[Rfam]
RNA sequence: UGAGGCUGAGGUAGUAGAUUGAAUAGUUGUGGAGUUUGUGCCCUCCCUCUGAGAUAACUAUACAAUCUACUGUCUUUCCUAA
Numbered sequence: 001u002g003a004g005g006c007u008g009a010g011g012u013a014g015u016a017g018a019u020u021g022a023a024u025a026g027u028u029g030u031g032g033a034g035u036u037u038g039u040g041c042c043c044u045c046c047c048u049c050u051g052a053g054a055u056a057a058c059u060a061u062a063c064a065a066u067c068u069a070c071u072g073u074c075u076u077u078c079c080u081a082a
Stems, first nucleotide, its partner, number of pairs: 001082001003080003008076014023061005032045003046053001